[Rfam]
A member of the RNA family "Gammaprotebacteria rimP leader" from Aeromonas salmonicida, 114 nucleotides long. Rfam's curators put it in the seed alignment. A reference for the family is Naville and Gautheret (2010), "Premature terminator analysis sheds light on a hidden world of bacterial transcriptional attenuation", Genome Biol.

RNA sequence: CGCUGCGAGGCGACAAUCAGGGUAAAGCGCCAAGCCCCGAUUUGACAUCGGGGCUUUUUGUUAUGUGCGAUUUACUCUGAAUCGAUAUCUAUCUGGGCUUUAUGCCCUUUUUUU
Numbered sequence: 001c002g003c004u005g006c007g008a009g010g011c012g013a014c015a016a017u018c019a020g021g022g023u024a025a026a027g028c029g030c031c032a033a034g035c036c037c038c039g040a041u042u043u044g045a046c047a048u049c050g051g052g053g054c055u056u057u058u059u060g061u062u063a064u065g066u067g068c069g070a071u072u073u074a075c076u077c078u079g080a081a082u083c084g085a086u087a088u089c090u091a092u093c094u095g096g097g098c099u100u101u102a103u104g105c106c107c108u109u110u111u112u113u114u
Base pairs, nucleotide, nucleotide: 032056033055034054035053036052037051038050039049095107096106097105098104